[Rfam]
Rfam assigns this 65-nucleotide RNA from Enterococcus hirae to the family "Enterococcus sRNA A9". The base pairs follow the family's consensus structure, which was predicted with RNAfold. NCBI's taxonomy places the organism under Bacteria, Bacillota, Lactobacillales, Enterococcaceae, Enterococcus hirae. The sequence is in the family's curated seed alignment. The family's RNA type in Rfam is antisense RNA.
RNA sequence: GCGAAGCGAUAUUAAUUUUUACCAAUGGAACACAAAAACCACUCUACGGCGAAUAGAGUGGUUUU
Numbered sequence: 001g002c003g004a005a006g007c008g009a010u011a012u013u014a015a016u017u018u019u020u021a022c023c024a025a026u027g028g029a030a031c032a033c034a035a036a037a038a039c040c041a042c043u044c045u046a047c048g049g050c051g052a053a054u055a056g057a058g059u060g061g062u063u064u065u
Base pairs, nucleotide, nucleotide: 006020008018009017035065036064037063038062039061040060041059042058043057044056045055046054